[Rfam]
RNA sequence: CCCCCGCCGCCGGGUUCGGUUCUCCGAGAGGGCGGCCGUGGAUUACUGGGCGAGUGCCACGACUCAGCAAAACCCCCAGAGGC
Numbered sequence: 001c002c003c004c005c006g007c008c009g010c011c012g013g014g015u016u017c018g019g020u021u022c023u024c025c026g027a028g029a030g031g032g033c034g035g036c037c038g039u040g041g042a043u044u045a046c047u048g049g050g051c052g053a054g055u056g057c058c059a060c061g062a063c064u065c066a067g068c069a070a071a072a073c074c075c076c077c078a079g080a081g082g083c
Stems, first nucleotide, its partner, number of pairs: 002014003007035005017026003037061005046079005